[Rfam]
RNA sequence: CUUUCCCUGCACUGUUGGUGAUCCUCAGUGUUUGUUGAGCCAACUCUCAUGAAAAGGGUACCUCCGCUGGUAUCUUAAGGAAGAUCGCUUGCGAAUUUCCUGACGUUGUUAUGAGGAUGCCCACCUAUUAACUUAGGUUUAACUGUCCUGGUGACACGGCAGUGUGGGGAAGAU
Number, nucleotide and partner (000 for none) at each position: 001c000002u172003u171004u170005c169006c168007c167008u166009g165010c164011a163012c162013u161014g160015u159016u000017g000018g157019u156020g000021a000022u000023c000024c000025u000026c000027a000028g000029u000030g000031u000032u145033u000034g143035u000036u141037g140038a139039g138040c137041c136042a000043a000044c000045u000046c000047u000048c000049a000050u000051g000052a000053a000054a000055a000056g122057g121058g120059u000060a118061c000062c116063u115064c000065c113066g000067c000068u111069g110070g109071u108072a107073u000074c105075u000076u000077a000078a000079g000080g099081a098082a000083g000084a000085u094086c093087g092088c000089u000090u000091g000092c087093g086094a085095a000096u000097u000098u081099c080100c000101u000102g000103a000104c000105g074106u000107u072108g071109u070110u069111a068112u000113g065114a000115g063116g062117a000118u060119g000120c058121c057122c056123a000124c000125c000126u000127a000128u000129u000130a000131a000132c000133u000134u000135a000136g041137g040138u039139u038140u037141a036142a000143c034144u000145g032146u000147c000148c000149u000150g000151g000152u000153g000154a000155c000156a019157c018158g000159g015160c014161a013162g012163u011164g010165u009166g008167g007168g006169g005170a004171a003172g002173a000174u000
The record is a 174-nucleotide RNA sequence from Desulfomarina profundi, which matches "6S / SsrS RNA" in Rfam.
Rfam's curators write: E. coli 6S RNA was the first non coding RNA to be sequenced, but its function was unknown until recently. It consists of 184 nucleotides that fold into an extended hairpin structure with a large single-stranded internal bulge. The 6S RNA specifically associates with RNA polymerase holoenzyme containing the sigma70 specificity factor.
For this family Rfam cites "6S RNA regulates E. coli RNA polymerase activity" (Wassarman and Storz, Cell, 2000).
Taxonomically the source falls in Desulfomarina (Bacteria, Pseudomonadati, Thermodesulfobacteriota, Desulfobulbales).
The family's RNA type in Rfam is non-coding RNA gene.